RNA sequence: CAGUACGGGGAAUGAUGUAUUACCACAAGGCCAUGAAGGUGCUUUCAUAUCUUGAUUCGGCCUCUCCCAUAGAACUG
Numbered sequence: 001c002a003g004u005a006c007g008g009g010g011a012a013u014g015a016u017g018u019a020u021u022a023c024c025a026c027a028a029g030g031c032c033a034u035g036a037a038g039g040u041g042c043u044u045u046c047a048u049a050u051c052u053u054g055a056u057u058c059g060g061c062c063u064c065u066c067c068c069a070u071a072g073a074a075c076u077g
Stems, first nucleotide, its partner, number of pairs: 001077004006072001
The family of this 77-nucleotide RNA from Ceratopteris richardii is "Small nucleolar RNA J33".
A search with the family's covariance model found it, with a score of 52 bits.
By type it is a C/D-box small nucleolar RNA.
Rfam links the family to the GO terms RNA processing and nucleolus.
Rfam 15.1 lists 831 matches to the family in 223 species.
The literature on the family includes a 2003 paper in Nucleic Acids Res by Chen et al., "The high diversity of snoRNAs in plants: identification and comparative study of 120 snoRNA genes from Oryza sativa".